[Rfam]
The record is a 212-nucleotide RNA from Arthrobacter sp. Edens01, which matches "c-di-AMP riboswitch aptamer (ydaO/yuaA leader)" in Rfam. The match comes from Rfam's covariance-model search (68 bits). This family represents a conserved RNA structure found upstream of the ydaO and yuaA genes in Bacillus subtilis and related genes in other bacteria.
Nucleotides: 212
Stems, first nucleotide, its partner, number of pairs: 011196004018058007059191006069094002095176003103154007157170004
Number, partner (000 for none) and nucleotide at each position: 001000c002000c003000g004000g005000u006000c007000c008000a009000a010000c011196a012195g013194c014193c015000u016000a017000a018058c019057c020056c021055u022054g023053c024052c025000a026000c027000u028000g029000g030000a031000c032000c033000g034000c035000a036000g037000g038000u039000g040000c041000c042000a043000c044000c045000g046000u047000u048000c049000g050000c051000g052024g053023g054022c055021a056020g057019g058018g059191g060190c061189g062188g063187a064186g065000g066000a067000c068000c069094c070093a071000a072000c073000a074000a075000c076000c077000g078000g079000c080000a081000g082000c083000c084000c085000a086000g087000c088000u089000g090000c091000c092000u093070u094069g095176g096175g097174g098000u099000g100000a101000a102000g103154c104153c105152u106151c107150c108149g109148a110000g111000c112000a113000c114000c115000a116000c117000a118000g119000g120000a121000a122000c123000a124000u125000c126000c127000a128000g129000g130000a131000c132000u133000g134000g135000a136000u137000a138000u139000c140000c141000c142000u143000g144000u145000g146000c147000g148109u149108c150107g151106g152105g153104g154103g155000c156000c157170g158169a159168g160167u161000u162000u163000c164000u165000c166000u167160a168159c169158u170157c171000g172000a173000a174097u175096c176095c177000g178000a179000c180000a181000g182000c183000u184000a185000a186064c187063u188062u189061c190060g191059c192000a193014g194013g195012c196011u197000u198000g199000u200000a201000g202000a203000g204000a205000g206000g207000g208000a209000a210000c211000c212000a